[Rfam]
RNA: L4-Archaeoglobi ribosomal protein leades
Organism: Methermicoccus shengliensis
RNA sequence: CUGACGGCAGCGCAUGGGUCGAACUCGGACUCGAGAGCCCAGCUCCACUCAGAAACCCGAAAGGUGUGAAGGUGGGGCAGCGCAUAGACGUCAG
Numbered sequence: 001c002u003g004a005c006g007g008c009a010g011c012g013c014a015u016g017g018g019u020c021g022a023a024c025u026c027g028g029a030c031u032c033g034a035g036a037g038c039c040c041a042g043c044u045c046c047a048c049u050c051a052g053a054a055a056c057c058c059g060a061a062a063g064g065u066g067u068g069a070a071g072g073u074g075g076g077g078c079a080g081c082g083c084a085u086a087g088a089c090g091u092c093a094g
Base pairs, nucleotide, nucleotide: 001094002093003092004091005090010083011082012081013080015041016040017039018038024035025034026033027032042078043077044076045075046074047073048072049071050068